[Rfam]
RNA sequence: AAGCUUCCUGCAUGUUCGCUGAUUCGUCAGCACAUGCCAGCAGUCGGGGUUUUCAGGCUGCCGCGGGGUUCUCCCCGUGCGACCCACCAGUCCGCUAUCGCAUCGAGUCUGCGGACGCGCGCCACUUGUGGCGUUGAUGC
Numbered sequence: 001a002a003g004c005u006u007c008c009u010g011c012a013u014g015u016u017c018g019c020u021g022a023u024u025c026g027u028c029a030g031c032a033c034a035u036g037c038c039a040g041c042a043g044u045c046g047g048g049g050u051u052u053u054c055a056g057g058c059u060g061c062c063g064c065g066g067g068g069u070u071c072u073c074c075c076c077g078u079g080c081g082a083c084c085c086a087c088c089a090g091u092c093c094g095c096u097a098u099c100g101c102a103u104c105g106a107g108u109c110u111g112c113g114g115a116c117g118c119g120c121g122c123c124a125c126u127u128g129u130g131g132c133g134u135u136g137a138u139g140c
Stems, first nucleotide, its partner, number of pairs: 011036005018031005040061006048084004062079007111140003119134006
Source information
A member of the RNA family "radC RNA" from Pseudomonas sp. ABC1, 140 nucleotides long. The base pairs follow the family's consensus structure, which is taken from published work. A search with the family's covariance model found it, with a score of 92 bits. The family has 148 seed sequences and 500 matches in Rfam 15.1.